Shown here is a 70-nucleotide sequence from Thiomonas bhubaneswarensis, a member of the family "Fluoride riboswitch aptamer (crcB RNA motif)". The source organism's lineage runs through Bacteria, Pseudomonadati, Betaproteobacteria, Burkholderiales and Thiomonas. For this family Rfam cites "Widespread genetic switches and toxicity resistance proteins for fluoride" (Baker et al., Science, 2012). Pairs were carried over by alignment from the consensus structure, which is taken from published work. Rfam links the family to the GO terms positive regulation of gene expression and response to fluoride.
[Rfam]
RNA sequence: AACAAAUACGGCGAUGGAGUUCGCCAAAACCGCGCGGGGCUGUCCCGUAGCUAAUGACUCCUACCUGCCG
Number, nucleotide and partner (000 for none) at each position: 001a000002a000003c000004a000005a000006a000007u000008a000009c000010g025011g024012c023013g022014a000015u000016g061017g060018a059019g058020u057021u056022c013023g012024c011025c010026a000027a000028a000029a000030c000031c000032g051033c050034g000035c000036g000037g000038g000039g000040c000041u000042g000043u000044c000045c000046c000047g000048u000049a000050g033051c032052u000053a000054a000055u000056g021057a020058c019059u018060c017061c016062u000063a000064c000065c000066u000067g000068c000069c000070g000